[Rfam]
RNA: Heliobacter pylori small RNA HPnc0580
Nucleotides: 100
Base pairs, nucleotide, nucleotide: 016030017029018028019027020026034058035057038053039052040051041050042049075090076089077088078087
Number, partner (000 for none) and nucleotide at each position: 001000a002000u003000u004000u005000u006000u007000a008000u009000g010000c011000a012000u013000c014000u015000u016030g017029a018028a019027u020026a021000a022000g023000a024000a025000a026020u027019a028018u029017u030016c031000u032000c033000g034058g035057u036000c037000a038053u039052u040051u041050a042049g043000g044000a045000u046000u047000g048000a049042c050041u051040a052039a053038g054000a055000a056000a057035a058034c059000c060000g061000g062000a063000a064000c065000c066000c067000a068000a069000u070000a071000c072000g073000u074000u075090a076089g077088g078087g079000c080000u081000c082000a083000a084000u085000u086000u087078c088077c089076c090075u091000c092000g093000a094000a095000a096000a097000u098000c099000c100000c